RNA sequence: GUGGGGUGAUUCGCAAACACCUGUCAUGGCGGCUGCCACACGCUAAACUAUGGAAUGAUAUUCGGUGCCGAAGGAUGUCUGAGUCCCCUGUGUAGAGGGACCUCCCAUAACAACUUCGGAAUCAUCAGAGUCCAUCUCAGGCAGCUGAGAAGGCCUCGGGUGUUGAAGAGUCUGGGAACCGCGUGAGGCAGGAAACUGAGCAACGAGCACUAGCCGUUCUGAAAGAGUGUUAGGACACUGGUCCUGAGCAGGAUCAGAAGGGUCGUCUGCAUUCGGAUAUCAAACCAUUU
Numbered sequence: 001g002u003g004g005g006g007u008g009a010u011u012c013g014c015a016a017a018c019a020c021c022u023g024u025c026a027u028g029g030c031g032g033c034u035g036c037c038a039c040a041c042g043c044u045a046a047a048c049u050a051u052g053g054a055a056u057g058a059u060a061u062u063c064g065g066u067g068c069c070g071a072a073g074g075a076u077g078u079c080u081g082a083g084u085c086c087c088c089u090g091u092g093u094a095g096a097g098g099g100a101c102c103u104c105c106c107a108u109a110a111c112a113a114c115u116u117c118g119g120a121a122u123c124a125u126c127a128g129a130g131u132c133c134a135u136c137u138c139a140g141g142c143a144g145c146u147g148a149g150a151a152g153g154c155c156u157c158g159g160g161u162g163u164u165g166a167a168g169a170g171u172c173u174g175g176g177a178a179c180c181g182c183g184u185g186a187g188g189c190a191g192g193a194a195a196c197u198g199a200g201c202a203a204c205g206a207g208c209a210c211u212a213g214c215c216g217u218u219c220u221g222a223a224a225g226a227g228u229g230u231u232a233g234g235a236c237a238c239u240g241g242u243c244c245u246g247a248g249c250a251g252g253a254u255c256a257g258a259a260g261g262g263u264c265g266u267c268u269g270c271a272u273u274c275g276g277a278u279a280u281c282a283a284a285c286c287a288u289u290u
Base pairs, nucleotide, nucleotide: 001048002047004022005021006020007019008018010016011015027045028044029043030042031041050288051287052286053285056282057281058280059279062277063276065274067272068269070267071266073264074263076261079257080256081255082254087252088251089250090249091248093246097245098244099243100242101241102240105234106233108232109231110230111229112228114225115224116222117221118220119219120218121217122216123162124161125160126159128157129156130155132153133152135150136149137148138147139146140145163169164168170215172213173212174211175210180207182205183204184203189198190197191196

Metazoan signal recognition particle RNA: a 290-nucleotide RNA from Planoprotostelium fungivorum. From the family's description: The signal recognition particle (SRP) is a universally conserved ribonucleoprotein. It is involved in the co-translational targeting of proteins to membranes. The eukaryotic SRP consists of a 300-nucleotide 7S RNA and six proteins: SRPs 72, 68, 54, 19, 14, and 9. Archaeal SRP consists of a 7S RNA and homologues of the eukaryotic SRP19 and SRP54 proteins. A reference for the family is Rosenblad et al. (2009), "Kinship in the SRP RNA family", RNA Biol. Lineage of the source: Eukaryota > Amoebozoa > Variosea > Cavosteliaceae > Planoprotostelium.